[Rfam]
RNA: Guanidine-I riboswitch aptamer
RNA sequence: UAAAUUGUUUUCUAGGGUUCCGCGGAUAAUCCGGACAGGUCCGAGAGAAAACGCACAGUGCGCUGUGUACACGGAGGGAUAAAAGCCCGGGAGUC
Numbered sequence: 001u002a003a004a005u006u007g008u009u010u011u012c013u014a015g016g017g018u019u020c021c022g023c024g025g026a027u028a029a030u031c032c033g034g035a036c037a038g039g040u041c042c043g044a045g046a047g048a049a050a051a052c053g054c055a056c057a058g059u060g061c062g063c064u065g066u067g068u069a070c071a072c073g074g075a076g077g078g079a080u081a082a083a084a085g086c087c088c089g090g091g092a093g094u095c
Stems, first nucleotide, its partner, number of pairs: 007052006015042002020039002022036001023033004053068006070090001072093001076088003